Rfam assigns this 113-nucleotide sequence from Tetrahymena elliotti to the family "Tetrahymena snoRNA TtnuHACA1".
The sequence is in the family's curated seed alignment.
The family's consensus secondary structure was predicted with mfold.
By type it is an H/ACA-box small nucleolar RNA.
The literature on the family includes a 2012 paper in Nucleic Acids Res by Andersen and Nielsen, "Experimental identification and analysis of macronuclear non-coding RNAs from the ciliate Tetrahymena thermophila".
Lineage of the source: Eukaryota > Sar > Tetrahymenina > Tetrahymenidae > Tetrahymena elliotti.
[Rfam]
RNA sequence: AGUCAUUAACUAUAUCUCCAUAUGUUGUUAAUGCUUGCGUUAUCUAGAGUGAAACUUCUCUUAGGCUCUUAUCAUAUGUUCAUAUGUGAAAAGAUACAAAGAAAAGGACAGUU
Number, nucleotide and partner (000 for none) at each position: 001a035002g034003u000004c033005a032006u031007u030008a029009a028010c027011u000012a025013u024014a023015u022016c000017u000018c000019c000020a000021u000022a015023u014024g013025u012026u000027g010028u009029u008030a007031a006032u005033g004034c002035u001036u000037g000038c000039g000040u000041u000042a000043u000044c000045u000046a000047g000048a112049g000050u110051g109052a000053a000054a000055c106056u105057u104058c000059u102060c101061u100062u099063a000064g000065g097066c000067u094068c093069u092070u091071a000072u089073c088074a087075u086076a085077u084078g083079u000080u000081c000082a000083u078084a077085u076086g075087u074088g073089a072090a000091a070092a069093g068094a067095u000096a000097c065098a000099a062100a061101g060102a059103a000104a057105a056106g055107g000108a000109c051110a050111g000112u048113u000